[Rfam]
Rfam assigns this 171-nucleotide sequence from Pasteurella felis to the family "Lysine riboswitch aptamer". Lineage of the source: Bacteria > Pseudomonadati > Gammaproteobacteria > Pasteurellaceae > Pasteurella. The base pairs follow the family's consensus structure, which is taken from published work.
RNA sequence: UACCUCUGUAGAGGUGCGAACAUUAUAAGUAUUUUUUCCGAGUGGAUAACGUUGAAGAAAAAAGAAAGGAGUGUCCGCCGAAAUCAAUUAAAAGUCAUUUUAAUUGGUUGGUAGCGUAUUCGAAAGAUGCGUUACUGUCAUAGUUAUGAACUAUGGAGUGCUACUGAUAGG
Numbered sequence: 001u002a003c004c005u006c007u008g009u010a011g012a013g014g015u016g017c018g019a020a021c022a023u024u025a026u027a028a029g030u031a032u033u034u035u036u037u038c039c040g041a042g043u044g045g046a047u048a049a050c051g052u053u054g055a056a057g058a059a060a061a062a063a064g065a066a067a068g069g070a071g072u073g074u075c076c077g078c079c080g081a082a083a084u085c086a087a088u089u090a091a092a093a094g095u096c097a098u099u100u101u102a103a104u105u106g107g108u109u110g111g112u113a114g115c116g117u118a119u120u121c122g123a124a125a126g127a128u129g130c131g132u133u134a135c136u137g138u139c140a141u142a143g144u145u146a147u148g149a150a151c152u153a154u155g156g157a158g159u160g161c162u163a164c165u166g167a168u169a170g171g
Stems, first nucleotide, its partner, number of pairs: 006166001008164004016078003020074005032063007082109012110136011138156007